[Rfam]
RNA sequence: UCCCGCCGGCGGUAUUCACUCCACUUCUCACUAUGGUGCCGCACGGCUUAAAAAAGGAGGAACAAGGUCCGCUGUGACUGGCGGUGCGGCAGUGUGGAGACCUGUCGCAAGGCGUGCCGGCUGAGCCGGGCGUGAGGCCGCUCCAUGCGGAGGCAGGGCGGUCACAGUCAGAUGCAUAUGGCA
Numbered sequence: 001u002c003c004c005g006c007c008g009g010c011g012g013u014a015u016u017c018a019c020u021c022c023a024c025u026u027c028u029c030a031c032u033a034u035g036g037u038g039c040c041g042c043a044c045g046g047c048u049u050a051a052a053a054a055a056g057g058a059g060g061a062a063c064a065a066g067g068u069c070c071g072c073u074g075u076g077a078c079u080g081g082c083g084g085u086g087c088g089g090c091a092g093u094g095u096g097g098a099g100a101c102c103u104g105u106c107g108c109a110a111g112g113c114g115u116g117c118c119g120g121c122u123g124a125g126c127c128g129g130g131c132g133u134g135a136g137g138c139c140g141c142u143c144c145a146u147g148c149g150g151a152g153g154c155a156g157g158g159c160g161g162u163c164a165c166a167g168u169c170a171g172a173u174g175c176a177u178a179u180g181g182c183a
Stems, first nucleotide, its partner, number of pairs: 006045001009042006016036003069084004075170006085109008094101002112133004117129004136163008146155003

Notes: Rfam assigns this 183-nucleotide RNA sequence from Firmicutes bacterium CAG:83 to the family "malK-I RNA". Rfam's curators put it in the seed alignment. Pairs were carried over by alignment from the consensus structure, which is taken from published work.